[Rfam]
RNA sequence: GCCACACCCCACGGGAGCCCGGGCACGGGCUGAGAUCGGACUGUUGCCGUCCGGACCGUCUGAACCUGUCCGGAUCAUGCCGGCGAAGGAAGAGGAGACGCCACCGUG
Dot-bracket structure: ......((.(((((..(((((....)))))......(((((.......)))))..)))).....(((..((((......))))...)))..).)).............
Numbered sequence: 001g002c003c004a005c006a007c008c009c010c011a012c013g014g015g016a017g018c019c020c021g022g023g024c025a026c027g028g029g030c031u032g033a034g035a036u037c038g039g040a041c042u043g044u045u046g047c048c049g050u051c052c053g054g055a056c057c058g059u060c061u062g063a064a065c066c067u068g069u070c071c072g073g074a075u076c077a078u079g080c081c082g083g084c085g086a087a088g089g090a091a092g093a094g095g096a097g098a099c100g101c102c103a104c105c106g107u108g
Stems, first nucleotide, its partner, number of pairs: 007095002010092001011059004017030005037053005065089003070083004
The family of this 108-nucleotide sequence from Knoellia subterranea is "TPP riboswitch aptamer (THI element)". It scores 64 bits against the family's covariance model.